[Rfam]
RNA sequence: GGACCACGAGACGAUGUGAUUGGGCUGUUAGCUUUGCAUCAUGUAUUGCGAGGCCCAGGAAAGUCCCCGGGCCUCUUUCUGCAGAGAUGCAGACUCGGAAACGAGUUACACUUCGAGACCGGGAAUUCAUUCGCUUAGUGCGAGGGGCUGAGACACGCGUGGAGCCCAUGAAAUUCCCGCCGAAGUAAUUUGGCCAAUAUUACACAGUUAUUCACAUGGUCCCACUGUGGACUAACUGAACGGGGCUUACGCUCUCGUGGUC
Numbered sequence: 001g002g003a004c005c006a007c008g009a010g011a012c013g014a015u016g017u018g019a020u021u022g023g024g025c026u027g028u029u030a031g032c033u034u035u036g037c038a039u040c041a042u043g044u045a046u047u048g049c050g051a052g053g054c055c056c057a058g059g060a061a062a063g064u065c066c067c068c069g070g071g072c073c074u075c076u077u078u079c080u081g082c083a084g085a086g087a088u089g090c091a092g093a094c095u096c097g098g099a100a101a102c103g104a105g106u107u108a109c110a111c112u113u114c115g116a117g118a119c120c121g122g123g124a125a126u127u128c129a130u131u132c133g134c135u136u137a138g139u140g141c142g143a144g145g146g147g148c149u150g151a152g153a154c155a156c157g158c159g160u161g162g163a164g165c166c167c168a169u170g171a172a173a174u175u176c177c178c179g180c181c182g183a184a185g186u187a188a189u190u191u192g193g194c195c196a197a198u199a200u201u202a203c204a205c206a207g208u209u210a211u212u213c214a215c216a217u218g219g220u221c222c223c224a225c226u227g228u229g230g231a232c233u234a235a236c237u238g239a240a241c242g243g244g245g246c247u248u249a250c251g252c253u254c255u256c257g258u259g260g261u262c
Stems, first nucleotide, its partner, number of pairs: 002262010014217006022056004061248003065245004080091004092107006110186002120179006145167004155160001219232004
Rfam assigns this 262-nucleotide RNA sequence from Quercus lobata to the family "RNase MRP".
By type it is a ribozyme.
Taxonomically the source falls in Quercus (Eukaryota, Viridiplantae, Embryophyta, Spermatophyta).